[Rfam]
RNA sequence: AGCUUCAUGCGGUGACAGUAUCGUAGCCAGUGAGGUUUAUCCAAGGAGCGAUUUUUGCUAAUUGAAAGCUUUUCCCUAUACCCGGCCAUGACCACUUGCAAUAUAGUUGGCAUUGGCAAUUUUUGACAGUCUCUAUGGAGA
Dot-bracket structure: ...................(((((..((.....((.....))..)).)))))................................((((((.(.(((........))).).))).)))............((((....))))
Numbered sequence: 001a002g003c004u005u006c007a008u009g010c011g012g013u014g015a016c017a018g019u020a021u022c023g024u025a026g027c028c029a030g031u032g033a034g035g036u037u038u039a040u041c042c043a044a045g046g047a048g049c050g051a052u053u054u055u056u057g058c059u060a061a062u063u064g065a066a067a068g069c070u071u072u073u074c075c076c077u078a079u080a081c082c083c084g085g086c087c088a089u090g091a092c093c094a095c096u097u098g099c100a101a102u103a104u105a106g107u108u109g110g111c112a113u114u115g116g117c118a119a120u121u122u123u124u125g126a127c128a129g130u131c132u133c134u135a136u137g138g139a140g141a
Stems, first nucleotide, its partner, number of pairs: 020052005027046002034042002085117003088113003092109001094107003130141004

Record summary:
Shown here is a 141-nucleotide sequence from Papio anubis, a member of the family "U4 spliceosomal RNA". A reference for the family is Thomas et al. (1990), "The spliceosomal snRNAs of Caenorhabditis elegans", Nucleic Acids Res. It is annotated as a spliceosomal small nuclear RNA. The base pairs follow the family's consensus structure, which is taken from published work. The source organism's lineage runs through Eukaryota, Metazoa, Vertebrata, Catarrhini and Papio. The family is grouped with related families in Rfam's "U4 clan".